[Rfam]
RNA sequence: UCCUUAUCAAGAGCGACGGAGGGAACAGGCCCUGUGAUGUCCGACAACCUGCUUUUAAGAAAGCAAGGUGCCAAAUCCUGCGGGAAAGCCGAAAGAUGAGGU
Numbered sequence: 001u002c003c004u005u006a007u008c009a010a011g012a013g014c015g016a017c018g019g020a021g022g023g024a025a026c027a028g029g030c031c032c033u034g035u036g037a038u039g040u041c042c043g044a045c046a047a048c049c050u051g052c053u054u055u056u057a058a059g060a061a062a063g064c065a066a067g068g069u070g071c072c073a074a075a076u077c078c079u080g081c082g083g084g085a086a087a088g089c090c091g092a093a094a095g096a097u098g099a100g101g102u
Stems, first nucleotide, its partner, number of pairs: 002101007013042001015041003021032003026080004043072001045070002048068002050065004076094001081091003